Shown here is a 121-nucleotide sequence from Schistosoma japonicum, a member of the family "U11 spliceosomal RNA".
It scores 72 bits against the family's covariance model.
Nucleotides: 121
Base pairs, nucleotide, nucleotide: 008074009073010072011071012070013024014023015022016021026044027043028042029041030040031039032038046069047068048067049066050065051064052063091119092118093117094116096115097114098113099112100111104110
Number, partner (000 for none) and nucleotide at each position: 001000a002000a003000a004000a005000a006000g007000g008074g009073u010072c011071u012070c013024c014023a015022u016021c017000u018000u019000a020000u021016g022015a023014u024013g025000a026044c027043u028042g029041g030040u031039u032038u033000a034000c035000u036000a037000u038032a039031g040030a041029c042028c043027g044026g045000g046069c047068g048067g049066a050065a051064u052063g053000g054000c055000g056000a057000u058000c059000a060000a061000g062000a063052c064051a065050u066049u067048c068047c069046g070012g071011g072010g073009a074008c075000a076000u077000a078000a079000u080000a081000u082000u083000u084000g085000g086000a087000c088000a089000u090000c091119g092118g093117g094116c095000a096115g097114u098113c099112g100111g101000c102000u103000a104110c105000a106000u107000c108000u109000g110104g111100c112099u113098g114097a115096c116094g117093u118092c119091c120000g121000u
Source information:
Rfam classes the family as a spliceosomal small nuclear RNA. NCBI's taxonomy places the organism under Eukaryota, Protostomia, Schistosomatoidea, Schistosomatidae, Schistosoma.